[Rfam]
RNA sequence: GGCAGAAGGUCUGCCGCAUACGCCAUACAGUUGGAGUAUGCAAACCACCUGAAGGUGCUGUGUUUAAAAAGCAUGAUGCUGAACGUUCAGGCAAAAGGUAAUGUAAGGACAUUAUCAGGU
Numbered sequence: 001g002g003c004a005g006a007a008g009g010u011c012u013g014c015c016g017c018a019u020a021c022g023c024c025a026u027a028c029a030g031u032u033g034g035a036g037u038a039u040g041c042a043a044a045c046c047a048c049c050u051g052a053a054g055g056u057g058c059u060g061u062g063u064u065u066a067a068a069a070a071g072c073a074u075g076a077u078g079c080u081g082a083a084c085g086u087u088c089a090g091g092c093a094a095a096a097g098g099u100a101a102u103g104u105a106a107g108g109a110c111a112u113u114a115u116c117a118g119g120u
Base pairs, nucleotide, nucleotide: 001015002014003013004012005011016041017040018039019038020037021036023034024033025032046119048091049090050089051088052087053086054080055079057077059075061073062072063071064070097116098115099114100113101112102111
Rfam assigns this 120-nucleotide sequence from Panacibacter microcysteis to the family "Group II catalytic intron D1-D4-2".
From the family's description: Group II introns are found in rRNA, tRNA and mRNA of organelles in fungi, plants and protists, and also in mRNA in bacteria.
Its family is annotated with Group II intron splicing in the Gene Ontology.
The family has 144 seed sequences and 1,231 matches in Rfam 15.1.
A search with the family's covariance model found it, with a score of 95 bits.